[Rfam]
Nucleotides: 600
Stems, first nucleotide, its partner, number of pairs: 001425002003422003007419001010416004019373005024267001027264007034256002040055004064251007076092002081087002095240002098238004105233001106229003109225004116153006122131003134143002159217004164185007188208002191205001193203001272325001274323002277320001283314003288307002293302003337358007379402007428562001430559001433555002438549008448539005454534006464525001564587010
Number, partner (000 for none) and nucleotide at each position: 001425a002424g003422a004421c005420c006000g007419u008000u009000u010416c011415u012414g013413a014000a015000a016000c017000c018000a019373g020372u021371a022370g023369u024267g025000a026000a027264g028263u029262a030261u031260g032259u033258u034256a035255u036000u037000u038000a039000a040055u041054u042053c043052g044000a045000u046000g047000a048000c049000c050000c051000g052043c053042g054041a055040a056000a057000a058000a059000c060000c061000u062000u063000a064251c065250c066249a067248c068247a069246g070245u071000u072000u073000g074000a075000a076092u077091a078000a079000c080000a081087a082086u083000g084000a085000a086082a087081u088000u089000g090000u091077u092076a093000c094000a095240a096239g097000c098238g099237c100236u101235g102000c103000a104000c105233g106229g107228c108227u109225g110224u111223c112222u113000u114000u115000a116153g117152u118151u119150a120149a121148u122131g123130u124129c125000g126000u127000g128000a129124g130123a131122u132000u133000u134143g135142g136000u137000u138000a139000a140000c141000u142135c143134c144000u145000c146000u147000a148121a149120u150119u151118a152117a153116c154000g155000a156000a157000a158000a159217c160216c161215c162214u163000c164185a165184c166183u167182u168181u169180a170179u171000u172000u173000g174000a175000a176000u177000a178000c179170a180169u181168a182167a183166a184165g185164u186000g187000g188208u189207u190000c191205g192000c193203c194000a195000c196000u197000a198000c199000a200000u201000u202000g203193g204000a205191c206000c207189a208188g209000a210000u211000a212000a213000u214162a215161g216160g217159g218000a219000u220000u221000a222112a223111g224110a225109c226000a227108a228107g229106u230000c231000a232000u233105c234000a235101u236100g237099g238098c239096c240095u241000a242000a243000a244000u245070a246069c247068u248067g249066u250065g251064g252000g253000c254000u255035a256034u257000a258033g259032a260031c261030g262029u263028g264027c265000c266000a267024c268000a269000u270000a271000c272325g273000c274323c275322u276000u277320a278000a279000c280000a281000a282000a283314g284313g285312g286000a287000u288307g289306c290000g291000a292000u293302a294301u295300u296000g297000u298000g299000a300295a301294a302293u303000g304000g305000a306289g307288c308000u309000a310000a311000u312285c313284c314283c315000c316000a317000a318000a319000a320277u321000u322275g323274g324000a325272u326000a327000u328000a329000a330000u331000a332000u333000g334000g335000a336000u337358u338357g339356u340355a341354g342353u343352c344000u345000g346000u347000a348000a349000c350000u351000c352343g353342a354341c355340u356339a357338c358337a359000u360000g361000a362000a363000u364000a365000a366000g367000g368000a369023a370022u371021u372020a373019c374000u375000a376000g377000u378000a379402a380401u381400c382399g383398u384397g385396a386000a387000u388000c389000a390000c391000c392000a393000a394000c395000g396385u397384c398383a399382c400381g401380g402379u403000g404000a405000a406000u407000c408000u409000a410000a411000u412000c413013u414012c415011a416010g417000c418000u419007a420005g421004g422003u423000a424002c425001u426000a427000a428562c429000c430559a431000c432000u433555c434554g435000u436000c437000a438549g439548g440547c441546g442545c443544u444543g445542a446000a447000a448539g449538g450537a451536g452535u453000a454534u455533g456532u457531g458530c459529a460000a461000u462000a463000a464525g465000u466000u467000u468000g469000a470000u471000u472000u473000g474000c475000u476000u477000a478000u479000g480000u481000a482000u483000u484000a485000a486000u487000a488000u489000a490000u491000a492000c493000a494000a495000u496000c497000a498000g499000g500000u501000a502000u503000a504000u505000a506000a507000a508000u509000a510000u511000g512000u513000a514000a515000g516000u517000c518000u519000a520000a521000u522000u523000u524000u525464c526000g527000u528000a529459u530458g531457c532456a533455u534454g535452a536451c537450u538449u539448u540000g541000a542445u543444u544443g545442g546441u547440g548439u549438u550000a551000a552000g553000u554434c555433g556000a557000a558000a559430u560000a561000c562428g563000g564587u565586u566585c567584g568583u569582g570581u571580a572579a573578u574000g575000g576000a577000a578573a579572u580571u581570g582569c583568a584567c585566g586565g587564g588000a589000u590000g591000a592000a593000u594000a595000a596000a597000u598000u599000u600000u
The record is a 600-nucleotide part of an RNA, which matches "Bacterial small subunit ribosomal RNA" in Rfam. It scores 711 bits against the family's covariance model. The family has 99 seed sequences and 42,628 matches in Rfam 15.1.